RNA sequence: CAAUCGGCCCUAUUGAGGGCCAUCAAACGUUCUUAAAAAAAAUUAU
Numbered sequence: 001c002a003a004u005c006g007g008c009c010c011u012a013u014u015g016a017g018g019g020c021c022a023u024c025a026a027a028c029g030u031u032c033u034u035a036a037a038a039a040a041a042a043u044u045a046u
Stems, first nucleotide, its partner, number of pairs: 006021006
The record is a 46-nucleotide sequence from Aedes aegypti, which matches "Histone 3' UTR stem-loop" in Rfam. From the family's description: The mRNAs of metazoan histone genes lack a poly-A tail. 3' end processing occurs at a site between a highly conserved stem-loop (modelled by this family) and a purine rich region around 20 nts downstream (the histone downstream element, or HDE). The stem-loop is bound by a 31 kDa stem-loop binding protein (SLBP - also termed the histone hairpin binding protein, or HBP). Together with U7 snRNA binding of the HDE, SLBP binding nucleate s the formation of the processing complex. The family has 50 seed sequences and 44,596 matches in Rfam 15.1. NCBI's taxonomy places the organism under Eukaryota, Dicondylia, Endopterygota, Culicinae, Stegomyia.